Shown here is a 195-nucleotide RNA from Paenibacillaceae bacterium GAS479, a member of the family "c-di-AMP riboswitch aptamer (ydaO/yuaA leader)". The source organism's lineage runs through Bacteria, Bacillati, Bacillota, Caryophanales and Paenibacillaceae. Its family is annotated with regulation of gene expression and cyclic-di-AMP binding in the Gene Ontology.
RNA sequence: CAUUUUACAACGCUAAAUUUCCAACUGGAAAACGGGGGAACCACAAGAUGGCUAGAAUCCGAUGUGAGAGUCGGAGCUCUUCCAUCCGGGGUGAAUCUAGCAGAAAUGGAGCCAUGGACAUCCAUUUCUGUUAGUAGGGCGACUCUCACCGCCCGAAUCCGACAGCUAACUUCGUAAGCGUAGGUAGGCCAGGUC
Number, nucleotide and partner (000 for none) at each position: 001c000002a000003u000004u000005u000006u000007a000008c000009a000010a000011c180012g179013c178014u177015a000016a000017a000018u031019u030020u029021c000022c000023a000024a000025c000026u000027g000028g000029a020030a019031a018032a175033c174034g173035g172036g171037g170038g000039a000040a000041c000042c088043a000044c000045a000046a000047g000048a000049u000050g000051g000052c000053u000054a000055g000056a000057a000058u000059c000060c000061g000062a000063u000064g000065u000066g000067a000068g000069a000070g000071u000072c000073g000074g000075a000076g000077c000078u000079c000080u000081u000082c000083c000084a000085u000086c000087c000088g042089g160090g159091g158092u000093g000094a000095a000096u000097c134098u133099a132100g131101c130102a129103g128104a127105a126106a125107u124108g123109g122110a121111g000112c000113c000114a000115u000116g000117g000118a000119c000120a000121u110122c109123c108124a107125u106126u105127u104128c103129u102130g101131u100132u099133a098134g097135u000136a000137g154138g153139g152140c151141g000142a000143c000144u000145c000146u000147c000148a000149c000150c000151g140152c139153c138154c137155g000156a000157a000158u091159c090160c089161g000162a000163c000164a000165g000166c000167u000168a000169a000170c037171u036172u035173c034174g033175u032176a000177a014178g013179c012180g011181u000182a000183g000184g000185u000186a000187g000188g000189c000190c000191a000192g000193g000194u000195c000